[Rfam]
RNA sequence: AUCUCAGGGCGCAUUCCUCCUCCCAUUGGCGCCCUCGAGUGUUCCCCUCUGGAGGUUUGUCCAAGUGGCAACUCCACUUUUCGUGGCCGGAUUUUCAUCCGGCCAUUUUUU
Numbered sequence: 001a002u003c004u005c006a007g008g009g010c011g012c013a014u015u016c017c018u019c020c021u022c023c024c025a026u027u028g029g030c031g032c033c034c035u036c037g038a039g040u041g042u043u044c045c046c047c048u049c050u051g052g053a054g055g056u057u058u059g060u061c062c063a064a065g066u067g068g069c070a071a072c073u074c075c076a077c078u079u080u081u082c083g084u085g086g087c088c089g090g091a092u093u094u095u096c097a098u099c100c101g102g103c104c105a106u107u108u109u110u111u
Base pairs, nucleotide, nucleotide: 001040003039004038005037007035008034009032010031011030012029050076051075052074053073054072056070083106084105085104086103087102088101089100090099091098092097
This 111-nucleotide RNA from Zhengella mangrovi belongs to the Rfam family "Alphaproteobacterial ar15". By type it is a small RNA. The organism belongs to Zhengella, within Bacteria. On this family, see del Val et al., RNA Biol 2012: "A survey of sRNA families in alpha-proteobacteria". Rfam links the family to the GO term protein binding.